[Rfam]
RNA sequence: AGCUGUGGAGUGUGACAAUGGUGUUUGUGUCCAAACCAUCAAACGCCAUUAUCACACUAAAUAGCU
Number, nucleotide and partner (000 for none) at each position: 001a000002g000003c000004u000005g000006u000007g000008g000009a058010g057011u056012g055013u054014g053015a052016c000017a050018a049019u048020g047021g046022u045023g044024u043025u042026u041027g040028u000029g000030u000031c000032c000033a000034a000035a000036c000037c000038a000039u000040c027041a026042a025043a024044c023045g022046c021047c020048a019049u018050u017051a000052u015053c014054a013055c012056a011057c010058u009059a000060a000061a000062u000063a000064g000065c000066u000

Shown here is a 66-nucleotide sequence from Mus musculus, a member of the family "mir-122 microRNA precursor family". The source organism's lineage runs through Eukaryota, Deuterostomia, Sarcopterygii, Myomorpha and Mus. The family's consensus secondary structure was predicted with RNAalifold. Rfam links the family to the GO terms RISC complex and miRNA-mediated post-transcriptional gene silencing.